This 96-nucleotide RNA sequence from Pedobacter cryophilus belongs to the Rfam family "Flavo-1 RNA". Lineage of the source: Bacteria > Bacteroidota > Sphingobacteriia > Sphingobacteriales > Pedobacter.

RNA sequence: AAAUAAACUGGGUUGAAGCGGCAUCUUUUUUGGUCAUCCUGAGCGGAGUCGAAAGGGUUAGAGCCCAAAAAAAUACAGCGUAAAACCAGACUAUCG
Numbered sequence: 001a002a003a004u005a006a007a008c009u010g011g012g013u014u015g016a017a018g019c020g021g022c023a024u025c026u027u028u029u030u031u032g033g034u035c036a037u038c039c040u041g042a043g044c045g046g047a048g049u050c051g052a053a054a055g056g057g058u059u060a061g062a063g064c065c066c067a068a069a070a071a072a073a074u075a076c077a078g079c080g081u082a083a084a085a086c087c088a089g090a091c092u093a094u095c096g
Base pairs, nucleotide, nucleotide: 009088010087011086013084014083018079019078023074024073026071029069030068031067032066033065
About this RNA
It scores 42 bits against the family's covariance model. By type it is a small RNA. Pairs were carried over by alignment from the consensus structure, which is taken from published work.